[Rfam]
RNA: Burkholderia sRNA Bp1_Cand684_SIPHT
Organism: Paraburkholderia phytofirmans
RNA sequence: AGAAAAGUAGGUGCCGCCCCGCACAGGGGCGACGCUAAUAGACCACUAAGAAAGCAGGUUCUACAGAAGGGCGCGGAUAACAGACAAAAAACAAACAAAACCCGCGCCCCGC
Numbered sequence: 001a002g003a004a005a006a007g008u009a010g011g012u013g014c015c016g017c018c019c020c021g022c023a024c025a026g027g028g029g030c031g032a033c034g035c036u037a038a039u040a041g042a043c044c045a046c047u048a049a050g051a052a053a054g055c056a057g058g059u060u061c062u063a064c065a066g067a068a069g070g071g072c073g074c075g076g077a078u079a080a081c082a083g084a085c086a087a088a089a090a091a092c093a094a095a096c097a098a099a100a101c102c103c104g105c106g107c108c109c110c111g112c
Stems, first nucleotide, its partner, number of pairs: 012075003015031006059066002096104001